[Rfam]
RNA sequence: UUUCCUGUGCAGGUUGGGAGAGGUAGCAAUGCUCAGAGAUUAUGCGGUAUUGCACUUGUCCCGGCCUGUGGAGGAAGG
Numbered sequence: 001u002u003u004c005c006u007g008u009g010c011a012g013g014u015u016g017g018g019a020g021a022g023g024u025a026g027c028a029a030u031g032c033u034c035a036g037a038g039a040u041u042a043u044g045c046g047g048u049a050u051u052g053c054a055c056u057u058g059u060c061c062c063g064g065c066c067u068g069u070g071g072a073g074g075a076a077g078g
Stems, first nucleotide, its partner, number of pairs: 004074003009069006016062004022056003026053008
Dot-bracket structure: ...(((..((((((.((((..(((.((((((((............)))))))))))..)))).))))))..)))....
RNA: mir-92 microRNA precursor family
Organism: Takifugu rubripes